[Rfam]
RNA: Manganese Mn2+ riboswitch aptamer (yybP-ykoY)
Organism: Sphaerotilus sulfidivorans
RNA sequence: CUUCCCGUCAUCGGGGAGUAGCUGACCGGACCCUGUCCGGUGCCUCGCGUCAACAUGCUUGUCCCUCACGGACAUGGCGCGGGCAGCCCCCUCCGGGCCUGGCAAGACCGAUGACCAUGCAGCCUCCGGACGGGCCGGUGGUGCUGCAUGGUCAUCGCUGAUCCUGCACCAC
Numbered sequence: 001c002u003u004c005c006c007g008u009c010a011u012c013g014g015g016g017a018g019u020a021g022c023u024g025a026c027c028g029g030a031c032c033c034u035g036u037c038c039g040g041u042g043c044c045u046c047g048c049g050u051c052a053a054c055a056u057g058c059u060u061g062u063c064c065c066u067c068a069c070g071g072a073c074a075u076g077g078c079g080c081g082g083g084c085a086g087c088c089c090c091c092u093c094c095g096g097g098c099c100u101g102g103c104a105a106g107a108c109c110g111a112u113g114a115c116c117a118u119g120c121a122g123c124c125u126c127c128g129g130a131c132g133g134g135c136c137g138g139u140g141g142u143g144c145u146g147c148a149u150g151g152u153c154a155u156c157g158c159u160g161a162u163c164c165u166g167c168a169c170c171a172c
Base pairs, nucleotide, nucleotide: 026040027039028038042084043083044082046081047080048079049078050077051076052075060074061073062072063071064070